[Rfam]
The record is a 381-nucleotide sequence from Fructilactobacillus lindneri, which matches "Bacterial RNase P class B" in Rfam. The family is grouped with related families in Rfam's "RNaseP clan".
RNA sequence: GACUCUGAGUAAUCGCGGUCAGUUUUUACUGGCUGAGGAAAGUCCACUCUCGCACAAGCUGAGACGCUUGUAGUGUUCGUGCUCGGUGAAAAAAUAAGCCGGGGAAUUGUAUUUUUACGAUUACGGCGAAAGAACAGACUAAGGAUUUUUAAUCUAUGUCUUAGUAUUUCCUAAGGUGCUAUAGAGACGAUUAAUUUGAGAAAUCAAAUUACUGGAACGUAGUAAACCCCUCGAGCGGGAAACCCAAACUUUGGUAGGGGAGCUUUACACACGGAAAUUGAACCAAGUGUAGGGCAAGAAUCUUUGAUUCUUGAGAUAGAUGAUUACUACUCAAUUGUUAUUCCUGAUAUUUCAAUUGAGCACAAAACAUGGCUUACAGGG
Numbered sequence: 001g002a003c004u005c006u007g008a009g010u011a012a013u014c015g016c017g018g019u020c021a022g023u024u025u026u027u028a029c030u031g032g033c034u035g036a037g038g039a040a041a042g043u044c045c046a047c048u049c050u051c052g053c054a055c056a057a058g059c060u061g062a063g064a065c066g067c068u069u070g071u072a073g074u075g076u077u078c079g080u081g082c083u084c085g086g087u088g089a090a091a092a093a094a095u096a097a098g099c100c101g102g103g104g105a106a107u108u109g110u111a112u113u114u115u116u117a118c119g120a121u122u123a124c125g126g127c128g129a130a131a132g133a134a135c136a137g138a139c140u141a142a143g144g145a146u147u148u149u150u151a152a153u154c155u156a157u158g159u160c161u162u163a164g165u166a167u168u169u170c171c172u173a174a175g176g177u178g179c180u181a182u183a184g185a186g187a188c189g190a191u192u193a194a195u196u197u198g199a200g201a202a203a204u205c206a207a208a209u210u211a212c213u214g215g216a217a218c219g220u221a222g223u224a225a226a227c228c229c230c231u232c233g234a235g236c237g238g239g240a241a242a243c244c245c246a247a248a249c250u251u252u253g254g255u256a257g258g259g260g261a262g263c264u265u266u267a268c269a270c271a272c273g274g275a276a277a278u279u280g281a282a283c284c285a286a287g288u289g290u291a292g293g294g295c296a297a298g299a300a301u302c303u304u305u306g307a308u309u310c311u312u313g314a315g316a317u318a319g320a321u322g323a324u325u326a327c328u329a330c331u332c333a334a335u336u337g338u339u340a341u342u343c344c345u346g347a348u349a350u351u352u353c354a355a356u357u358g359a360g361c362a363c364a365a366a367a368c369a370u371g372g373c374u375u376a377c378a379g380g381g
Stems, first nucleotide, its partner, number of pairs: 004381003007377001008328007016035006040375003044372003049239005054071006077234003081230001082103006104124001105122006125229002128170004136161004143155003176227002178223003192211008243259003263294007295313006330360008
Rfam's curators write: Ribonuclease P (RNase P) is a ubiquitous endoribonuclease, found in archaea, bacteria and eukarya as well as chloroplasts and mitochondria. Its best characterised activity is the generation of mature 5'-ends of tRNAs by cleaving the 5'-leader elements of precursor-tRNAs. Cellular RNase Ps are ribonucleoproteins. RNA from bacterial RNase Ps retains its catalytic activity in the absence of the protein subunit, i.e. it is a ribozyme.